This 75-nucleotide sequence from Cellulomonas sp. Leaf395 belongs to the Rfam family "c-di-GMP-I-GGC riboswitch aptamer". The match comes from Rfam's covariance-model search (68 bits). Pairs were carried over by alignment from the consensus structure, which is taken from published work.
RNA sequence: AGCGAUAACGGCAAACCCUCUGCAAGGAGGGGACGCAAAGCCACGGGACCUACACGGUCAGCCGGGCUACCGAAC
Number, nucleotide and partner (000 for none) at each position: 001a000002g000003c072004g071005a000006u000007a000008a000009c000010g000011g036012c035013a000014a000015a000016c031017c030018c029019u028020c027021u026022g000023c000024a000025a000026g021027g020028a019029g018030g017031g016032g000033a000034c061035g012036c011037a000038a000039a068040g067041c066042c065043a000044c064045g063046g062047g059048a058049c057050c000051u000052a000053c000054a000055c000056g000057g049058u048059c047060a000061g034062c046063c045064g044065g042066g041067c040068u039069a000070c000071c004072g003073a000074a000075c000